A member of the RNA family "Ribosomal protein L10 leader" from Hathewaya proteolytica, 129 nucleotides long. Rfam links the family to the GO term regulation of gene expression. The source organism's lineage runs through Bacteria, Clostridia, Clostridiaceae, Hathewaya and Hathewaya proteolytica. A search with the family's covariance model found it, with a score of 77 bits. The family's RNA type in Rfam is cis-regulatory leader. This family is a putative r-protein leader autoregulatory structure found in B. subtilis and other low-GC Gram-positive bacteria. It is located in the 5' untranslated regions of mRNAs encoding ribosomal proteins L10 and L12 (rplJ-rplL). A Rho-independent transcription terminator structure that is probably involved in regulation is included at the 3' end.
RNA sequence: AGUGAAUAAAUAGUGUUUCCGCAGACAGUAGGUGCUGAAAAGCGUAAGUCAAUCGCCUACCGAGGAAGAUUUAUAUAUGUGAGUAUAUAGUCUCUUCGUAUUCUGCGGAGGGACUUUUAAUUUAUAGAA
Numbered sequence: 001a002g003u004g005a006a007u008a009a010a011u012a013g014u015g016u017u018u019c020c021g022c023a024g025a026c027a028g029u030a031g032g033u034g035c036u037g038a039a040a041a042g043c044g045u046a047a048g049u050c051a052a053u054c055g056c057c058u059a060c061c062g063a064g065g066a067a068g069a070u071u072u073a074u075a076u077a078u079g080u081g082a083g084u085a086u087a088u089a090g091u092c093u094c095u096u097c098g099u100a101u102u103c104u105g106c107g108g109a110g111g112g113a114c115u116u117u118u119a120a121u122u123u124a125u126a127g128a129a
Stems, first nucleotide, its partner, number of pairs: 028060006034043003090114010